[Rfam]
RNA: U4atac minor spliceosomal RNA
RNA sequence: ACCAUCCUUUUGAUGGGUUGCACUAUGUCCAAUGAGCGCACAGUGAGGGCAGUACUGCUAACGCCUAUACAACACACCCACAUCAACCAGAGGUUUGCUUUUAUCUUGGAGCAAUUUUUGGAAAA
Numbered sequence: 001a002c003c004a005u006c007c008u009u010u011u012g013a014u015g016g017g018u019u020g021c022a023c024u025a026u027g028u029c030c031a032a033u034g035a036g037c038g039c040a041c042a043g044u045g046a047g048g049g050c051a052g053u054a055c056u057g058c059u060a061a062c063g064c065c066u067a068u069a070c071a072a073c074a075c076a077c078c079c080a081c082a083u084c085a086a087c088c089a090g091a092g093g094u095u096u097g098c099u100u101u102u103a104u105c106u107u108g109g110a111g112c113a114a115u116u117u118u119u120g121g122a123a124a125a
Stems, first nucleotide, its partner, number of pairs: 007017003020058003025053001026051005036044002081111001083109003089102005
Dot-bracket structure: ......(((.....)))..(((..((((((.....((.....))..))))).)..)))......................(.(((...(((((....)))))....))).)..............